[Rfam]
RNA sequence: AAGAAAGUAAGUGCCGCCCCGCACAGGGGCGAAGCUAAUAGACCAAAGCCAAUACAAGUUCCAUAGAAGCACAAGCGCAUCAAACGGUGCAAACAACAAACCCGAACCCCAAGCGCCAGCGACAA
Numbered sequence: 001a002a003g004a005a006a007g008u009a010a011g012u013g014c015c016g017c018c019c020c021g022c023a024c025a026g027g028g029g030c031g032a033a034g035c036u037a038a039u040a041g042a043c044c045a046a047a048g049c050c051a052a053u054a055c056a057a058g059u060u061c062c063a064u065a066g067a068a069g070c071a072c073a074a075g076c077g078c079a080u081c082a083a084a085c086g087g088u089g090c091a092a093a094c095a096a097c098a099a100a101c102c103c104g105a106a107c108c109c110c111a112a113g114c115g116c117c118a119g120c121g122a123c124a125a
Stems, first nucleotide, its partner, number of pairs: 012091003015031006058085003113120002
Burkholderia sRNA Bp1_Cand684_SIPHT: a 125-nucleotide sequence from Caballeronia glathei. For this family Rfam cites "Computational discovery and RT-PCR validation of novel Burkholderia conserved and Burkholderia pseudomallei unique sRNAs" (Khoo et al., BMC Genomics, 2012). The base pairs follow the family's consensus structure, which was predicted with RNAalifold.